[Rfam]
RNA sequence: ACCUUCUCUCUGCCUUCUGGCUUGGAUCAAGUGUAGUACCUGUUCUUCUCAGCUUAAUCGCUGAUAGCCCUGCACUGCAGGACACACCGAUUAAUCAAUUUUUAAUACUCGUGACUUGGCCUCUGUGCUUGCAUACGCCUCGUUGCACUGUGUCACUGGGCUUACACUACCCCCGGUUGAUGCGACCCCUU
Numbered sequence: 001a002c003c004u005u006c007u008c009u010c011u012g013c014c015u016u017c018u019g020g021c022u023u024g025g026a027u028c029a030a031g032u033g034u035a036g037u038a039c040c041u042g043u044u045c046u047u048c049u050c051a052g053c054u055u056a057a058u059c060g061c062u063g064a065u066a067g068c069c070c071u072g073c074a075c076u077g078c079a080g081g082a083c084a085c086a087c088c089g090a091u092u093a094a095u096c097a098a099u100u101u102u103u104a105a106u107a108c109u110c111g112u113g114a115c116u117u118g119g120c121c122u123c124u125g126u127g128c129u130u131g132c133a134u135a136c137g138c139c140u141c142g143u144u145g146c147a148c149u150g151u152g153u154c155a156c157u158g159g160g161c162u163u164a165c166a167c168u169a170c171c172c173c174c175g176g177u178u179g180a181u182g183c184g185a186c187c188c189c190u191u
Stems, first nucleotide, its partner, number of pairs: 007026003012021003047066001049064004067083001069081005111146005118139001124135004149184006155177006
RNA: U2 spliceosomal RNA
Organism: Penicillium freii